[Rfam]
RNA sequence: AUUCAUAGCUAGGGGAGCCCUGAGGCUGAGAGUCCGUGCACGCGGACGACCCUCACAACCUGACCUGGGUAAUACCAGCGUAGGGAAGCCGACAGCCGCAGUC
Numbered sequence: 001a002u003u004c005a006u007a008g009c010u011a012g013g014g015g016a017g018c019c020c021u022g023a024g025g026c027u028g029a030g031a032g033u034c035c036g037u038g039c040a041c042g043c044g045g046a047c048g049a050c051c052c053u054c055a056c057a058a059c060c061u062g063a064c065c066u067g068g069g070u071a072a073u074a075c076c077a078g079c080g081u082a083g084g085g086a087a088g089c090c091g092a093c094a095g096c097c098g099c100a101g102u103c
Stems, first nucleotide, its partner, number of pairs: 006091001008089003011053004017026003033046005059084004065078004
RNA: TPP riboswitch aptamer (THI element)
Organism: Candidatus Nitrospira nitrosa